[Rfam]
The record is a 112-nucleotide RNA sequence, which matches "drum RNA" in Rfam.
From the family's description: Firmicutes, Bacteroidetes (1 example), Proteobacteria (2 examples), Spirochaetes (2 examples).

RNA sequence: CGGUAAUGAAGCAAUUGACUGGUUCGGUUUCAGCCGAUUGUGGAGCCAGACCGUGGGUUAUGCGGUAACCACAAGCCGAAUAGAUUCUUUGAAUCGAAGAAAAACGCUUAAU
Numbered sequence: 001c002g003g004u005a006a007u008g009a010a011g012c013a014a015u016u017g018a019c020u021g022g023u024u025c026g027g028u029u030u031c032a033g034c035c036g037a038u039u040g041u042g043g044a045g046c047c048a049g050a051c052c053g054u055g056g057g058u059u060a061u062g063c064g065g066u067a068a069c070c071a072c073a074a075g076c077c078g079a080a081u082a083g084a085u086u087c088u089u090u091g092a093a094u095c096g097a098a099g100a101a102a103a104a105c106g107c108u109u110a111a112u
Stems, first nucleotide, its partner, number of pairs: 002047003011041007019033003024079004062107003083095004
The base pairs follow the family's consensus structure, which is taken from published work.